[Rfam]
RNA sequence: ACAGAGGAGAAAGAAGGCUGAGUCUGAUGAAGCAAGACUUUGUGGAUACACUUCUCCUAGAAAAAAGAGGUACAGAGAGCAGCCCGUACUAGAGAAAAAUCACAGGGCUGACUGUUCUGACAUUU
Numbered sequence: 001a002c003a004g005a006g007g008a009g010a011a012a013g014a015a016g017g018c019u020g021a022g023u024c025u026g027a028u029g030a031a032g033c034a035a036g037a038c039u040u041u042g043u044g045g046a047u048a049c050a051c052u053u054c055u056c057c058u059a060g061a062a063a064a065a066a067g068a069g070g071u072a073c074a075g076a077g078a079g080c081a082g083c084c085c086g087u088a089c090u091a092g093a094g095a096a097a098a099a100u101c102a103c104a105g106g107g108c109u110g111a112c113u114g115u116u117c118u119g120a121c122a123u124u125u
Stems, first nucleotide, its partner, number of pairs: 002060001004056005017043002020040006078113002080110006090102001092100001
Dot-bracket structure: .(.(((((........((.((((((.........)))))).))........)))))...).................((((((((....(.(.......).)..)))))).))............